RNA sequence: GUGCAAAUGAUGUGAACAUUUUUUACUGCUGAGUAAAGUGAUGUUUCCAAAGGAACCACUGAUGCAC
Dot-bracket structure: (((((.........................................................)))))
Numbered sequence: 001g002u003g004c005a006a007a008u009g010a011u012g013u014g015a016a017c018a019u020u021u022u023u024u025a026c027u028g029c030u031g032a033g034u035a036a037a038g039u040g041a042u043g044u045u046u047c048c049a050a051a052g053g054a055a056c057c058a059c060u061g062a063u064g065c066a067c
Stems, first nucleotide, its partner, number of pairs: 001067005
Small nucleolar RNA SNORD42: a 67-nucleotide sequence from Oceanites oceanicus. It is annotated as a C/D-box small nucleolar RNA. Gene Ontology terms of the family: nucleolus and RNA processing. NCBI's taxonomy places the organism under Eukaryota, Bilateria, Gnathostomata, Coelurosauria, Oceanites. From the family's description: snoRNA U42 is found in intron 3 of the ribosomal protein L23a (RPL23a) gene in humans and is also present in mice.